[Rfam]
RNA sequence: CGAGAUGGAGCCAAACCUGCCGUGAGGUAGUGAUGGAAAGCUACGGAUCUUCAUAAAAAAGAUAGCCGAGCUGCCUUGG
Numbered sequence: 001c002g003a004g005a006u007g008g009a010g011c012c013a014a015a016c017c018u019g020c021c022g023u024g025a026g027g028u029a030g031u032g033a034u035g036g037a038a039a040g041c042u043a044c045g046g047a048u049c050u051u052c053a054u055a056a057a058a059a060a061g062a063u064a065g066c067c068g069a070g071c072u073g074c075c076u077u078g079g
Stems, first nucleotide, its partner, number of pairs: 001079001003076002011036002017030005034065001039072004044068003047063003
The record is a 79-nucleotide sequence, which matches "c-di-GMP-I-GGC riboswitch aptamer" in Rfam. A reference for the family is Weinberg et al. (2017), "Bioinformatic analysis of riboswitch structures uncovers variant classes with altered ligand specificity", Proc Natl Acad Sci U S A. The family is grouped with related families in Rfam's "c-di-GMP_I riboswitch clan".